Shown here is a 322-nucleotide sequence from Halarcobacter anaerophilus, a member of the family "Bacterial RNase P class A".
On this family, see Frank and Pace, Annu Rev Biochem 1998: "Ribonuclease P: unity and diversity in a tRNA processing ribozyme".
Taxonomically the source falls in Halarcobacter (Bacteria, Pseudomonadati, Epsilonproteobacteria, Campylobacterales).
Ribonuclease P (RNase P) is a ubiquitous endoribonuclease, found in archaea, bacteria and eukarya as well as chloroplasts and mitochondria.
The family's consensus secondary structure is taken from published work.
It is annotated as a ribozyme.

RNA sequence: UAGGUACAUCAGACAAUAGCUUGUUUAACAAGAGGAAAGUCUGGGCUGCAGUGAAGUAUGGUUCCAUCUAACGGAUGGCUAGAGAGAUCUAAGGGACAGUGCAACAGAAAGUAAACCGCCUUUUUAGGUAAGGGUGAAAGGGUAGGGUAAGAGCCUACCAGCAUUUAGAGCAAUCUUUAUGGCUAUGUAAACCCAACCAGCAGCAAGAAGAACGUGGUAAUAAACUUCACACUUAUUGUUCUUCGCAGGAUUGUUAAAGUGAUUUAACAACUAGAUAAAUUAUUGUCUAAUACAAAACCCGGCUUAUAGAUGUACCUAAAAA
Numbered sequence: 001u002a003g004g005u006a007c008a009u010c011a012g013a014c015a016a017u018a019g020c021u022u023g024u025u026u027a028a029c030a031a032g033a034g035g036a037a038a039g040u041c042u043g044g045g046c047u048g049c050a051g052u053g054a055a056g057u058a059u060g061g062u063u064c065c066a067u068c069u070a071a072c073g074g075a076u077g078g079c080u081a082g083a084g085a086g087a088u089c090u091a092a093g094g095g096a097c098a099g100u101g102c103a104a105c106a107g108a109a110a111g112u113a114a115a116c117c118g119c120c121u122u123u124u125u126a127g128g129u130a131a132g133g134g135u136g137a138a139a140g141g142g143u144a145g146g147g148u149a150a151g152a153g154c155c156u157a158c159c160a161g162c163a164u165u166u167a168g169a170g171c172a173a174u175c176u177u178u179a180u181g182g183c184u185a186u187g188u189a190a191a192c193c194c195a196a197c198c199a200g201c202a203g204c205a206a207g208a209a210g211a212a213c214g215u216g217g218u219a220a221u222a223a224a225c226u227u228c229a230c231a232c233u234u235a236u237u238g239u240u241c242u243u244c245g246c247a248g249g250a251u252u253g254u255u256a257a258a259g260u261g262a263u264u265u266a267a268c269a270a271c272u273a274g275a276u277a278a279a280u281u282a283u284u285g286u287c288u289a290a291u292a293c294a295a296a297a298c299c300c301g302g303c304u305u306a307u308a309g310a311u312g313u314a315c316c317u318a319a320a321a322a
Base pairs, nucleotide, nucleotide: 001318002317003316004315005314006313007312008311009310010309011307012287013286014285015284016283017282018281020032021031022030023029024028037305038304039303041302042301043300044299045298046203047202048201049200056228059199060198061197062196063195064078065077066076067075068074079093080091081090082089083088094194095193099192100191101188102187103186116133117132118129119128120127121126141159142158143157144156145155146154161183162181163180164179167176168175169174207244208243209242210241221235222234223233251270252269253268254267255266256265257264258263